[Rfam]
RNA sequence: AUCAGGUGCAGAGCUUAGUCGACUGCUGAACAGGGAGUCUUAGCAAUUUGUUCACAGUGGCUAAGUUCUUCACUUGUA
Numbered sequence: 001a002u003c004a005g006g007u008g009c010a011g012a013g014c015u016u017a018g019u020c021g022a023c024u025g026c027u028g029a030a031c032a033g034g035g036a037g038u039c040u041u042a043g044c045a046a047u048u049u050g051u052u053c054a055c056a057g058u059g060g061c062u063a064a065g066u067u068c069u070u071c072a073c074u075u076g077u078a
Base pairs, nucleotide, nucleotide: 011068012067013066014065015064016063017062018061019060020059027054028053029052030051031050032049